[Rfam]
RNA sequence: AUGUUAACGCGUGAUAUGUUAACAUCGGUUUUCCAAAAAAUCGAUGUUAACGUGUAUGCAUUAACAU
Numbered sequence: 001a002u003g004u005u006a007a008c009g010c011g012u013g014a015u016a017u018g019u020u021a022a023c024a025u026c027g028g029u030u031u032u033c034c035a036a037a038a039a040a041u042c043g044a045u046g047u048u049a050a051c052g053u054g055u056a057u058g059c060a061u062u063a064a065c066a067u
Stems, first nucleotide, its partner, number of pairs: 001067007009059003014055019
The record is a 67-nucleotide sequence from Glycine max, which matches "MIR4359 microRNA precursor family" in Rfam.
Lineage of the source: Eukaryota > Tracheophyta > Euphyllophyta > Mesangiospermae > Glycine subgen. Soja.
The family has 2 seed sequences and 187 matches in Rfam 15.1.
Pairs were carried over by alignment from the consensus structure, which was predicted with RNAalifold.
Rfam links the family to the GO terms miRNA-mediated post-transcriptional gene silencing and RISC complex.